[Rfam]
RNA sequence: AUGAACAACGGCAAAUCCAUCGAAAGGUGGAGACGCAAAGCCACGGGUCUAAGCCAUGAGUCACAUGUCAUGGGAUGAUAGCCGGGUUACUCUUU
Numbered sequence: 001a002u003g004a005a006c007a008a009c010g011g012c013a014a015a016u017c018c019a020u021c022g023a024a025a026g027g028u029g030g031a032g033a034c035g036c037a038a039a040g041c042c043a044c045g046g047g048u049c050u051a052a053g054c055c056a057u058g059a060g061u062c063a064c065a066u067g068u069c070a071u072g073g074g075a076u077g078a079u080a081g082c083c084g085g086g087u088u089a090c091u092c093u094u095u
Stems, first nucleotide, its partner, number of pairs: 001095001003092002011036002016031006034081001039088004044084003047079003

The record is a 95-nucleotide RNA from Paenibacillus sp. Root444D2, which matches "c-di-GMP-I-GGC riboswitch aptamer" in Rfam. The family is grouped with related families in Rfam's "c-di-GMP_I riboswitch clan". A reference for the family is Weinberg et al. (2017), "Bioinformatic analysis of riboswitch structures uncovers variant classes with altered ligand specificity", Proc Natl Acad Sci U S A. Taxonomically the source falls in Paenibacillus (Bacteria, Bacilli, Caryophanales, Paenibacillaceae).